[Rfam]
RNA sequence: GCCGAUCUUCAGGGCAGGGUGAAAUUCCCGACCGGCGGUGACAGUCCGCGAGUUUUCCAGGGUUUGGAAAACAGGAGGCAGUGAAAUUCUGCCACCGACAGUAUAGUCUGGAUGAGAGAAGAUGCGU
Numbered sequence: 001g002c003c004g005a006u007c008u009u010c011a012g013g014g015c016a017g018g019g020u021g022a023a024a025u026u027c028c029c030g031a032c033c034g035g036c037g038g039u040g041a042c043a044g045u046c047c048g049c050g051a052g053u054u055u056u057c058c059a060g061g062g063u064u065u066g067g068a069a070a071a072c073a074g075g076a077g078g079c080a081g082u083g084a085a086a087u088u089c090u091g092c093c094a095c096c097g098a099c100a101g102u103a104u105a106g107u108c109u110g111g112a113u114g115a116g117a118g119a120a121g122a123u124g125c126g127u
Base pairs, nucleotide, nucleotide: 005123006122007121008120009119010118017029018028019027031107032106033097034096035049036048037047038046044095045094054071077093078092079091080090081089099110100109101108
Dot-bracket structure: ....((((((......(((.......))).[[((((((.....[[))))....(................).....(((((.......)))))]])).(((....]]))).......))))))....
FMN riboswitch aptamer (RFN element): a 127-nucleotide sequence from Verrucomicrobia bacterium S94. It scores 111 bits against the family's covariance model. The RFN element is a highly conserved domain that is found frequently in the 5'-untranslated regions of prokaryotic mRNAs that encode for flavin mononucleotide (FMN) biosynthesis and transport proteins.